A member of the RNA family "GP20-b RNA", 62 nucleotides long. Pairs were carried over by alignment from the consensus structure, which is taken from published work. Rfam classes the family as a cis-regulatory element.
Nucleotides: 062
Base pairs, nucleotide, nucleotide: 001015002014003013004012007027008026035049036048037047038046
Number, partner (000 for none) and nucleotide at each position: 001015u002014g003013c004012c005000u006000u007027c008026g009000g010000a011000c012004g013003g014002c015001g016000u017000a018000a019000a020000a021000a022000g023000c024000a025000g026008c027007g028000a029000g030000g031000a032000a033000g034000a035049g036048u037047u038046g039000a040000a041000g042000c043000g044000a045000c046038c047037a048036a049035c050000g051000u052000a053000a054000a055000a056000a057000a058000g059000c060000g061000u062000a